The family of this 113-nucleotide sequence from Clostridium sp. HMP27 is "SAM riboswitch aptamer (S box leader)".
[Rfam]
RNA sequence: AUCUUAUCAAGAGUGGUUGAGGGACUGGCCCGAUGAAACCCAGCAACAGCUAGUUUAAAAUGUUAAACUGGAAAUGUGCUAAUUCCUGCAGGAAAUAUCCUGGAAGAUAAGAA
Numbered sequence: 001a002u003c004u005u006a007u008c009a010a011g012a013g014u015g016g017u018u019g020a021g022g023g024a025c026u027g028g029c030c031c032g033a034u035g036a037a038a039c040c041c042a043g044c045a046a047c048a049g050c051u052a053g054u055u056u057a058a059a060a061u062g063u064u065a066a067a068c069u070g071g072a073a074a075u076g077u078g079c080u081a082a083u084u085c086c087u088g089c090a091g092g093a094a095a096u097a098u099c100c101u102g103g104a105a106g107a108u109a110a111g112a113a
Base pairs, nucleotide, nucleotide: 002112003111004110005109006108007107008106013041015040016039017038021031022030023029025088027086028085042080043079044078045077047076048075050071051070052069053068054067055066056065084105089102090101091100092099093098

The match comes from Rfam's covariance-model search (89 bits). Rfam's curators write: The SAM riboswitch is found upstream of a number of genes which code for proteins involved in methionine or cysteine biosynthesis in Gram-positive bacteria.